Acido-Lenti-1 RNA: a 45-nucleotide sequence from Lentimonas sp. CC11. Rfam classes the family as a small RNA. Taxonomically the source falls in Lentimonas (Bacteria, Pseudomonadati, Verrucomicrobiota). Pairs were carried over by alignment from the consensus structure, which is taken from published work. It scores 39 bits against the family's covariance model.

RNA sequence: UCUAGGGCUUUGCCCUAGGCUGACAUCGGCCGCACCUUUGGUGCU
Numbered sequence: 001u002c003u004a005g006g007g008c009u010u011u012g013c014c015c016u017a018g019g020c021u022g023a024c025a026u027c028g029g030c031c032g033c034a035c036c037u038u039u040g041g042u043g044c045u
Base pairs, nucleotide, nucleotide: 001019002018003017004016005015006014007013008012032044033043034042035041036040